[Rfam]
RNA sequence: GUAUGGUUGUGCAUGGAUAGUGUUCAGCACCAAGGACAGGUGUGUGUAUGAGUGGAUGGUGUUCAGCACCAAGGACAGGUGCAUUUGUGU
Numbered sequence: 001g002u003a004u005g006g007u008u009g010u011g012c013a014u015g016g017a018u019a020g021u022g023u024u025c026a027g028c029a030c031c032a033a034g035g036a037c038a039g040g041u042g043u044g045u046g047u048a049u050g051a052g053u054g055g056a057u058g059g060u061g062u063u064c065a066g067c068a069c070c071a072a073g074g075a076c077a078g079g080u081g082c083a084u085u086u087g088u089g090u
Stems, first nucleotide, its partner, number of pairs: 004081002007078004018071001020069005026063007036049001041048002
Overview
A member of the RNA family "mir-2060 microRNA precursor family" from Branchiostoma belcheri, 90 nucleotides long. Its family is annotated with miRNA-mediated post-transcriptional gene silencing and RISC complex in the Gene Ontology. Rfam 15.1 lists 3,696 matches to the family in 4 species.